[Rfam]
RNA: UnaL2 LINE 3' element
RNA sequence: CCUAAAAUGCACUGUAAGUCGCUUUGGAUAAAAGUGUCUGCUAAAUGCAUGAAU
Numbered sequence: 001c002c003u004a005a006a007a008u009g010c011a012c013u014g015u016a017a018g019u020c021g022c023u024u025u026g027g028a029u030a031a032a033a034g035u036g037u038c039u040g041c042u043a044a045a046u047g048c049a050u051g052a053a054u
Base pairs, nucleotide, nucleotide: 013043014041015040016039020036021035022034023033024032025031